[Rfam]
RNA sequence: UUCAUGCAAAGGCCGAAGCUUCCUACGGAAGCGCGGGGGACCCUCAUUUUUGGGGUGAAGCCACUUCAUGUGGCCGGGUGAUUGCUCUUUGACCCGAAUCCGUCAGCUAACCUCGCAGGCCGUAUAAAGGAGAGGA
Numbered sequence: 001u002u003c004a005u006g007c008a009a010a011g012g013c014c015g016a017a018g019c020u021u022c023c024u025a026c027g028g029a030a031g032c033g034c035g036g037g038g039g040a041c042c043c044u045c046a047u048u049u050u051u052g053g054g055g056u057g058a059a060g061c062c063a064c065u066u067c068a069u070g071u072g073g074c075c076g077g078g079u080g081a082u083u084g085c086u087c088u089u090u091g092a093c094c095c096g097a098a099u100c101c102g103u104c105a106g107c108u109a110a111c112c113u114c115g116c117a118g119g120c121c122g123u124a125u126a127a128a129g130g131a132g133a134g135g136a
Stems, first nucleotide, its partner, number of pairs: 011121004018032003033116006043052001053101003061073004076095004
RNA: c-di-AMP riboswitch aptamer (ydaO/yuaA leader)
Organism: Paenibacillus solanacearum